[Rfam]
RNA sequence: AAUUAAUUGUACCUAUUUACUCAUGUAGUAGCAAGAAUAUGGCUUGUAAGUUUUCUACUAGUUCACCGUAAAUAAACUGACUAUGAGUAGCAUUAUAUCGUCA
Numbered sequence: 001a002a003u004u005a006a007u008u009g010u011a012c013c014u015a016u017u018u019a020c021u022c023a024u025g026u027a028g029u030a031g032c033a034a035g036a037a038u039a040u041g042g043c044u045u046g047u048a049a050g051u052u053u054u055c056u057a058c059u060a061g062u063u064c065a066c067c068g069u070a071a072a073u074a075a076a077c078u079g080a081c082u083a084u085g086a087g088u089a090g091c092a093u094u095a096u097a098u099c100g101u102c103a
Stems, first nucleotide, its partner, number of pairs: 018089008029049001031047005059079005065073001
RNA: Purine riboswitch aptamer
Organism: Ornithinibacillus hominis